[Rfam]
RNA sequence: CAUCUUCCGACCGGCGAUCAGUAAGUGCACCAGAUUGGGAAUAACCUUCAAAAGCUGCAACUUAAAUAUUCCCAGUAAUGUCCACUUACAAGGAGCCCCUGGUUGGAUGGGUG
Numbered sequence: 001c002a003u004c005u006u007c008c009g010a011c012c013g014g015c016g017a018u019c020a021g022u023a024a025g026u027g028c029a030c031c032a033g034a035u036u037g038g039g040a041a042u043a044a045c046c047u048u049c050a051a052a053a054g055c056u057g058c059a060a061c062u063u064a065a066a067u068a069u070u071c072c073c074a075g076u077a078a079u080g081u082c083c084a085c086u087u088a089c090a091a092g093g094a095g096c097c098c099c100u101g102g103u104u105g106g107a108u109g110g111g112u113g
Base pairs, nucleotide, nucleotide: 001113002112003111004110005109006107007106008105009104010103011102012101013097014096015095021089022088023087024086025085026084027083029081030080034076035075036074037073038072039071040070041069042068043067
A member of the RNA family "mir-2494 microRNA precursor family" from Drosophila melanogaster, 113 nucleotides long. The sequence is in the family's curated seed alignment. The family's consensus secondary structure was predicted with RNAalifold.